About this RNA
A member of the RNA family "Small nucleolar RNA SNORA48" from Nannospalax galili, 143 nucleotides long. It scores 50 bits against the family's covariance model. The base pairs follow the family's consensus structure, which was predicted with RNAalifold. Rfam 15.1 lists 2,109 matches to the family in 150 species. Rfam links the family to the GO terms nucleolus and RNA processing. For this family Rfam cites "Mapping to nucleotide resolution of pseudouridine residues in large subunit ribosomal RNAs from representative eukaryotes, prokaryotes, archaebacteria, mitochondria and chloroplasts" (Ofengand and Bakin, J Mol Biol, 1997).
RNA sequence: AACCCCUGACAACGGGCAAAGCUGCGACUCAUUGGUGGUGGUGUUCUUCUAUCAGUCAGGGGCAGAGCAGAUGGUGUUUUUUGUUCAUCCUGGCUUGAUGACUGGUUCGGUGGCCAAAGCUGUUUCAUGCCUAACAAAAAUAA
Dot-bracket structure: ..((((((.....((...(((...((.(........).)).....)))...))...)))))).................((((((...........(.(...(((..((.(.......).))..))).).).)))))).....